The family of this 135-nucleotide RNA from Piaya cayana is "Small nucleolar RNA SNORA84". The family's RNA type in Rfam is H/ACA-box small nucleolar RNA. The literature on the family includes a 2002 paper in Curr Biol by Marker et al., "Experimental RNomics: identification of 140 candidates for small non-messenger RNAs in the plant Arabidopsis thaliana". Gene Ontology terms of the family: nucleolus and RNA processing. The source organism's lineage runs through Eukaryota, Craniata, Vertebrata, Sarcopterygii and Piaya.

RNA sequence: GCCCUGUGGUUGCUGGACACUGGUUUGUGGUUACAGUGCUUCAGUUGUUAGAAAUGGGCCUAAAGUGACACUGUGAUUUAUGCAUGGAGCCUGCAGUACGUGAGCAGCUUCCGUAGCCCGGUCACAGUUACAGAC
Numbered sequence: 001g002c003c004c005u006g007u008g009g010u011u012g013c014u015g016g017a018c019a020c021u022g023g024u025u026u027g028u029g030g031u032u033a034c035a036g037u038g039c040u041u042c043a044g045u046u047g048u049u050a051g052a053a054a055u056g057g058g059c060c061u062a063a064a065g066u067g068a069c070a071c072u073g074u075g076a077u078u079u080a081u082g083c084a085u086g087g088a089g090c091c092u093g094c095a096g097u098a099c100g101u102g103a104g105c106a107g108c109u110u111c112c113g114u115a116g117c118c119c120g121g122u123c124a125c126a127g128u129u130a131c132a133g134a135c
Stems, first nucleotide, its partner, number of pairs: 001059004007050002010047001012045006019037004071127001073125006082117002084114004089109001091107004